[Rfam]
Shown here is a 76-nucleotide sequence from Clostridium sp. CAG:226, a member of the family "Gut-1 RNA".
Rfam classes the family as a small RNA.
It scores 68 bits against the family's covariance model.

RNA sequence: CAGUGAAAUCCUGCUUGCGCAGGGUGAAAUUGCGCUGAUGCGCAGUGAAAUAUGGCUUCGCCAUGUGAAAUACGCC
Numbered sequence: 001c002a003g004u005g006a007a008a009u010c011c012u013g014c015u016u017g018c019g020c021a022g023g024g025u026g027a028a029a030u031u032g033c034g035c036u037g038a039u040g041c042g043c044a045g046u047g048a049a050a051u052a053u054g055g056c057u058u059c060g061c062c063a064u065g066u067g068a069a070a071u072a073c074g075c076c
Base pairs, nucleotide, nucleotide: 008025009024010023011022012021013020014019029046030045031044032043033042034041050066051065052064053063054062055061056060